[Rfam]
RNA: Listeria sRNA sbrA
RNA sequence: GUACAUCAAGAUCCAUACCCCUAAUACUCCCUAGAUUGACCAGUGCUUGCAGAGGCACUGGUCUUUUUUU
Number, nucleotide and partner (000 for none) at each position: 001g000002u000003a000004c000005a036006u035007c034008a000009a032010g000011a000012u000013c000014c000015a000016u000017a000018c000019c000020c000021c000022u000023a000024a000025u000026a000027c000028u000029c000030c000031c000032u009033a000034g007035a006036u005037u000038g063039a062040c061041c060042a059043g058044u057045g056046c055047u054048u000049g000050c000051a000052g000053a000054g047055g046056c045057a044058c043059u042060g041061g040062u039063c038064u000065u000066u000067u000068u000069u000070u000